[Rfam]
RNA sequence: GGAAGCAGAUGGGGUCUGGUGGCUCCCGCGGUCUUCAAAACCGUAGGUUGCGUAAUUUGCAAUGGCAGGUUCGAUUCCUGCCUCUUCC
Numbered sequence: 001g002g003a004a005g006c007a008g009a010u011g012g013g014g015u016c017u018g019g020u021g022g023c024u025c026c027c028g029c030g031g032u033c034u035u036c037a038a039a040a041c042c043g044u045a046g047g048u049u050g051c052g053u054a055a056u057u058u059g060c061a062a063u064g065g066c067a068g069g070u071u072c073g074a075u076u077c078c079u080g081c082c083u084c085u086u087c088c
Stems, first nucleotide, its partner, number of pairs: 001088005008081001011026006028044005047063005066080004
Dot-bracket structure: (((((..(..((((((....)))))).(((((.......)))))..(((((.......)))))..((((.......)))))..)))))
The family of this 88-nucleotide sequence from Treponema pedis is "Selenocysteine transfer RNA". The source organism's lineage runs through Bacteria, Pseudomonadati, Treponematales, Treponema and Treponema pedis. Rfam links the family to the GO term triplet codon-amino acid adaptor activity. The family's consensus secondary structure is taken from published work.